Description:
This 100-nucleotide RNA from Quercus lobata belongs to the Rfam family "MIR5225 microRNA precursor family". The source organism's lineage runs through Eukaryota, Mesangiospermae, Gunneridae, fabids and Quercus. The family has 6 seed sequences and 63 matches in Rfam 15.1. The base pairs follow the family's consensus structure, which was predicted with RNAalifold.
RNA sequence: UAUAGGAACUUCUGUCGUGGGAGAGAUGACGCCUUGUGCAGCAGUAGAAGACAAUUUGAGCAGUAGGCAUCAUCUCUCCUCGACAGAAGCUCCUUCAAUU
Numbered sequence: 001u002a003u004a005g006g007a008a009c010u011u012c013u014g015u016c017g018u019g020g021g022a023g024a025g026a027u028g029a030c031g032c033c034u035u036g037u038g039c040a041g042c043a044g045u046a047g048a049a050g051a052c053a054a055u056u057u058g059a060g061c062a063g064u065a066g067g068c069a070u071c072a073u074c075u076c077u078c079c080u081c082g083a084c085a086g087a088a089g090c091u092c093c094u095u096c097a098a099u100u
Stems, first nucleotide, its partner, number of pairs: 005092002009089004014084004019080003023076007